[Rfam]
RNA sequence: ACCAAUGUUCGGGCCCCUCUGGCGAGAGCUGCCGGCUUUCUCGUGAUGUCGAACGGAUCAC
Numbered sequence: 001a002c003c004a005a006u007g008u009u010c011g012g013g014c015c016c017c018u019c020u021g022g023c024g025a026g027a028g029c030u031g032c033c034g035g036c037u038u039u040c041u042c043g044u045g046a047u048g049u050c051g052a053a054c055g056g057a058u059c060a061c
Stems, first nucleotide, its partner, number of pairs: 006055007022044007
RNA: terC RNA